Description:
A member of the RNA family "Group II catalytic intron D1-D4-3" from Thomasclavelia cocleata, 175 nucleotides long. Taxonomically the source falls in Thomasclavelia (Bacteria, Bacillati, Erysipelotrichales, Coprobacillaceae). From the family's description: Group II introns are found in rRNA, tRNA and mRNA of organelles in fungi, plants and protists, and also in mRNA in bacteria. It scores 97 bits against the family's covariance model. Its family is annotated with Group II intron splicing in the Gene Ontology.
[Rfam]
RNA sequence: UUGAUAGUGAUGUCAUGAGUGAAGGAAGUGGUGUAGCAAUUCUUUUGAGCGUACGAACAGAAACUUGAUGAGGCUAAAUGGAUGGUGGAUAAGGUUGCCACUCAAACCGAAGUCCAAAAGGUAAACGUAAAACCAAGACAGUAAAUCAAGACGUUGUGAAAGAAAUAGGGUUCAU
Dot-bracket structure: .(((((....)))))...............((...((...(((((.((((((...........(((((....(((...(((.(...((((..((((........))))...))))...............).)))....)))...)))))))))).).)))))......))..))
Numbered sequence: 001u002u003g004a005u006a007g008u009g010a011u012g013u014c015a016u017g018a019g020u021g022a023a024g025g026a027a028g029u030g031g032u033g034u035a036g037c038a039a040u041u042c043u044u045u046u047g048a049g050c051g052u053a054c055g056a057a058c059a060g061a062a063a064c065u066u067g068a069u070g071a072g073g074c075u076a077a078a079u080g081g082a083u084g085g086u087g088g089a090u091a092a093g094g095u096u097g098c099c100a101c102u103c104a105a106a107c108c109g110a111a112g113u114c115c116a117a118a119a120g121g122u123a124a125a126c127g128u129a130a131a132a133c134c135a136a137g138a139c140a141g142u143a144a145a146u147c148a149a150g151a152c153g154u155u156g157u158g159a160a161a162g163a164a165a166u167a168g169g170g171u172u173c174a175u
Stems, first nucleotide, its partner, number of pairs: 002015005031175002036171002041163005047157001048155005064150005073142003079135003083131001087115004093108004